[Rfam]
RNA sequence: UCCAACCCUACAUACUUCUUCAUAUGCCCAUAUGGAGCCGGCCGGUGCUAUGGAACGUUAAGAAGUAUGUAUUUUUCGG
Numbered sequence: 001u002c003c004a005a006c007c008c009u010a011c012a013u014a015c016u017u018c019u020u021c022a023u024a025u026g027c028c029c030a031u032a033u034g035g036a037g038c039c040g041g042c043c044g045g046u047g048c049u050a051u052g053g054a055a056c057g058u059u060a061a062g063a064a065g066u067a068u069g070u071a072u073u074u075u076u077c078g079g
Stems, first nucleotide, its partner, number of pairs: 009071012022058002025055001028053005
The family of this 79-nucleotide RNA sequence from Lonchura striata is "mir-1 microRNA precursor family". Gene Ontology terms of the family: RISC complex and miRNA-mediated post-transcriptional gene silencing.